[Rfam]
RNA: MAT2A 3'UTR stem loop B
Nucleotides: 064
Stems, first nucleotide, its partner, number of pairs: 001064006008057002012053001016046006023039002025031002
Number, partner (000 for none) and nucleotide at each position: 001064a002063c003062a004061g005060g006059c007000a008057c009056u010000u011000g012053g013000c014000a015000c016046c017045u018044u019043u020042g021041u022000g023039a024038u025031g026030u027000c028000a029000u030026a031025u032000g033000g034000a035000a036000a037000a038024g039023u040000a041021a042020c043019a044018g045017g046016g047000c048000a049000g050000u051000a052000c053012c054000u055000g056009a057008g058000g059006g060005u061004c062003u063002g064001u